A member of the RNA family "A. fumigatus sRNA Afu_254" from Aspergillus thermomutatus, 152 nucleotides long.
RNA sequence: CAACUGAUCCAUUCAAUCUCAGAGCCUAUCUUCCUCAAGCAACCCUUCUUUCACCACCGACUCAAUCACCAUGACUCCCUGCACCUGCAACUCCUGCGGCUGCUCUAGCGACUGCAACGGCUGCCAGUGCUCCUCUUGCGGAGUAAGUAUCU
Numbered sequence: 001c002a003a004c005u006g007a008u009c010c011a012u013u014c015a016a017u018c019u020c021a022g023a024g025c026c027u028a029u030c031u032u033c034c035u036c037a038a039g040c041a042a043c044c045c046u047u048c049u050u051u052c053a054c055c056a057c058c059g060a061c062u063c064a065a066u067c068a069c070c071a072u073g074a075c076u077c078c079c080u081g082c083a084c085c086u087g088c089a090a091c092u093c094c095u096g097c098g099g100c101u102g103c104u105c106u107a108g109c110g111a112c113u114g115c116a117a118c119g120g121c122u123g124c125c126a127g128u129g130c131u132c133c134u135c136u137u138g139c140g141g142a143g144u145a146a147g148u149a150u151c152u
Stems, first nucleotide, its partner, number of pairs: 080110003087103003114139003123130002